A member of the RNA family "Small nucleolar RNA snR80" from Thyridium curvatum, 153 nucleotides long.
It scores 45 bits against the family's covariance model.
The family is grouped with related families in Rfam's "SNORA28 clan".
[Rfam]
RNA sequence: UACACCUGGCCUACACUCUGAGUUGAACUGCGCUCCAUGUUCAAUCUCAAUUUCAGUGCUGAGGAAGAUUGAUUGUCGUGGCCCAUUACUCACCGCGGCUCCCCUACUACUUCGGUAGAGGUGGGAGCUGAGGUCCAUAUUCGAGGCCAACAU
Numbered sequence: 001u002a003c004a005c006c007u008g009g010c011c012u013a014c015a016c017u018c019u020g021a022g023u024u025g026a027a028c029u030g031c032g033c034u035c036c037a038u039g040u041u042c043a044a045u046c047u048c049a050a051u052u053u054c055a056g057u058g059c060u061g062a063g064g065a066a067g068a069u070u071g072a073u074u075g076u077c078g079u080g081g082c083c084c085a086u087u088a089c090u091c092a093c094c095g096c097g098g099c100u101c102c103c104c105u106a107c108u109a110c111u112u113c114g115g116u117a118g119a120g121g122u123g124g125g126a127g128c129u130g131a132g133g134u135c136c137a138u139a140u141u142c143g144a145g146g147c148c149a150a151c152a153u
Base pairs, nucleotide, nucleotide: 007062009060019049020048021047022046024044025042026041027040028039080148081147082146083145093133094132096130098128099127100126102125103124104123
By type it is an H/ACA-box small nucleolar RNA.